[Rfam]
RNA sequence: AAUUUAAUAAAUAUAUAAAUUCGUAUAAUCAUGGGAAUAUGGCCCAUAAGUUUCUACCGAGCUACCGUUAAUAGCUUGACUACGGAUAUGAAUGAUACUGCC
Numbered sequence: 001a002a003u004u005u006a007a008u009a010a011a012u013a014u015a016u017a018a019a020u021u022c023g024u025a026u027a028a029u030c031a032u033g034g035g036a037a038u039a040u041g042g043c044c045c046a047u048a049a050g051u052u053u054c055u056a057c058c059g060a061g062c063u064a065c066c067g068u069u070a071a072u073a074g075c076u077u078g079a080c081u082a083c084g085g086a087u088a089u090g091a092a093u094g095a096u097a098c099u100g101c102c
Base pairs, nucleotide, nucleotide: 019087020086021085022084023083024082025081029049031047032046033045034044035043058078059077060076061075062074063073064072